[Rfam]
RNA sequence: AGGAGGAACAACCCCAGUGGCUGCAGCAGCUCUGGAAACCUGGAUUCAGCUCCCGCAGGAACUCUGGAGCUCUCCCUCUGCAGGGCCUGGAGCCUCCGGGGCGGG
Numbered sequence: 001a002g003g004a005g006g007a008a009c010a011a012c013c014c015c016a017g018u019g020g021c022u023g024c025a026g027c028a029g030c031u032c033u034g035g036a037a038a039c040c041u042g043g044a045u046u047c048a049g050c051u052c053c054c055g056c057a058g059g060a061a062c063u064c065u066g067g068a069g070c071u072c073u074c075c076c077u078c079u080g081c082a083g084g085g086c087c088u089g090g091a092g093c094c095u096c097c098g099g100g101g102c103g104g105g
Stems, first nucleotide, its partner, number of pairs: 002097005009089002012085003019078002023074001028071009039059004
RNA: mir-8834 microRNA precursor family